[Rfam]
RNA sequence: GCAGAUCCAAGGCCGCGAUGCUCGUCCCGCACAGGAUGUCCUCCGAUGUCUCUUCAUGCGAGCGGGCCAAGGUCUGAGUGACGCAACCUCGACGGUCCCAGCGGGACCCGGCCGUAACAAGCCGUGCGACGUACCAGAUAUACCAUGCGUCUGCCCUCGUCCGCGCGUUGACACAGUCGUAUCUGCAUGGUACGGCUGGCCUCCUUAUAACGUCGCUGAGAGGCCCAACGUUGCGGAGGGGCCAUCGAAGUCGAUGAAACUAGAUGGAGGGCCCUGGCGGGCGAAGUGUUGAAAGACGUCGUGGUGCCCGGGCGCGUUCUGGCGAAGGCCUGUGCUUCGCCUCCUGCGCAUGCUGUUGGCUCAAUCCUCCUAUGCUGUCUUCGCGAGGCCCUCCAAAUCGUCGUUAGACGCACACGCCGGGUCAUUUGGAGGGCCACUCCUAGGAGUGCAGACAUCAUGCGCGUCAGCCCUAGGCCCUGUGCGUGUGAUGCACUGGCGCUCGGAGGGUGUAGGCGCUAUAUGCAUGGCGUGGGCCGACAGCUCCAGGAAAGAGCGCGUCCUUGAGUGCGAUUCGCGGCACGCUUCGCUCUAGUAGCAAGUGUAACUCGAUUCAGACUACUCUGGGUCUGC
Numbered sequence: 001g002c003a004g005a006u007c008c009a010a011g012g013c014c015g016c017g018a019u020g021c022u023c024g025u026c027c028c029g030c031a032c033a034g035g036a037u038g039u040c041c042u043c044c045g046a047u048g049u050c051u052c053u054u055c056a057u058g059c060g061a062g063c064g065g066g067c068c069a070a071g072g073u074c075u076g077a078g079u080g081a082c083g084c085a086a087c088c089u090c091g092a093c094g095g096u097c098c099c100a101g102c103g104g105g106a107c108c109c110g111g112c113c114g115u116a117a118c119a120a121g122c123c124g125u126g127c128g129a130c131g132u133a134c135c136a137g138a139u140a141u142a143c144c145a146u147g148c149g150u151c152u153g154c155c156c157u158c159g160u161c162c163g164c165g166c167g168u169u170g171a172c173a174c175a176g177u178c179g180u181a182u183c184u185g186c187a188u189g190g191u192a193c194g195g196c197u198g199g200c201c202u203c204c205u206u207a208u209a210a211c212g213u214c215g216c217u218g219a220g221a222g223g224c225c226c227a228a229c230g231u232u233g234c235g236g237a238g239g240g241g242c243c244a245u246c247g248a249a250g251u252c253g254a255u256g257a258a259a260c261u262a263g264a265u266g267g268a269g270g271g272c273c274c275u276g277g278c279g280g281g282c283g284a285a286g287u288g289u290u291g292a293a294a295g296a297c298g299u300c301g302u303g304g305u306g307c308c309c310g311g312g313c314g315c316g317u318u319c320u321g322g323c324g325a326a327g328g329c330c331u332g333u334g335c336u337u338c339g340c341c342u343c344c345u346g347c348g349c350a351u352g353c354u355g356u357u358g359g360c361u362c363a364a365u366c367c368u369c370c371u372a373u374g375c376u377g378u379c380u381u382c383g384c385g386a387g388g389c390c391c392u393c394c395a396a397a398u399c400g401u402c403g404u405u406a407g408a409c410g411c412a413c414a415c416g417c418c419g420g421g422u423c424a425u426u427u428g429g430a431g432g433g434c435c436a437c438u439c440c441u442a443g444g445a446g447u448g449c450a451g452a453c454a455u456c457a458u459g460c461g462c463g464u465c466a467g468c469c470c471u472a473g474g475c476c477c478u479g480u481g482c483g484u485g486u487g488a489u490g491c492a493c494u495g496g497c498g499c500u501c502g503g504a505g506g507g508u509g510u511a512g513g514c515g516c517u518a519u520a521u522g523c524a525u526g527g528c529g530u531g532g533g534c535c536g537a538c539a540g541c542u543c544c545a546g547g548a549a550a551g552a553g554c555g556c557g558u559c560c561u562u563g564a565g566u567g568c569g570a571u572u573c574g575c576g577g578c579a580c581g582c583u584u585c586g587c588u589c590u591a592g593u594a595g596c597a598a599g600u601g602u603a604a605c606u607c608g609a610u611u612c613a614g615a616c617u618a619c620u621c622u623g624g625g626u627c628u629g630c
Stems, first nucleotide, its partner, number of pairs: 001630004007624003012578007020063005034051005039045001074614005084306002087303001094108005109124004126302007144288003579602006
Nuclear RNase P: a 630-nucleotide sequence from Schizophyllum amplum. Pairs were carried over by alignment from the consensus structure, which is taken from published work. Rfam 15.1 lists 3,848 matches to the family in 1,862 species. Its Rfam clan is "RNaseP clan". The family's RNA type in Rfam is ribozyme. The source organism's lineage runs through Eukaryota, Opisthokonta, Agaricomycetes, Agaricomycetidae and Schizophyllum. Ribonuclease P (RNase P) is a ubiquitous endoribonuclease, found in archaea, bacteria and eukarya as well as chloroplasts and mitochondria.